[Rfam]
Nucleotides: 089
Stems, first nucleotide, its partner, number of pairs: 001088010012077002015074001017073019038052003
Number, partner (000 for none) and nucleotide at each position: 001088u002087a003086c004085u005084c006083c007082c008081u009080c010079c011000a012077u013076c014000a015074c016000a017073a018072a019071a020070u021069a022068a023067g024066c025065c026064a027063a028062c029061c030060u031059c032058g033057u034056a035055u036000u037000a038052g039051g040050a041000u042000g043000u044000g045000a046000c047000a048000c049000a050040u051039c052038c053000c054000a055035g056034u057033a058032c059031g060030a061029g062028g063027u064026u065025g066024g067023u068022u069021u070020a071019u072018u073017u074015g075000g076013g077012a078000c079010g080009g081008a082007g083006g084005g085004a086003g087002u088001a089000a